[Rfam]
RNA sequence: UUGGGUGAAACACAUGUAGGUCCCUCACUUUUGAAAAGGAUCUCACAUAAAGUGGUAGGACUCACAUGUGUUUCAUCCAA
Numbered sequence: 001u002u003g004g005g006u007g008a009a010a011c012a013c014a015u016g017u018a019g020g021u022c023c024c025u026c027a028c029u030u031u032u033g034a035a036a037a038g039g040a041u042c043u044c045a046c047a048u049a050a051a052g053u054g055g056u057a058g059g060a061c062u063c064a065c066a067u068g069u070g071u072u073u074c075a076u077c078c079a080a
Stems, first nucleotide, its partner, number of pairs: 001080017023058001026054006
Dot-bracket structure: (((((((((((((((((.....(..((((((.................))))))...).....)))))))))))))))))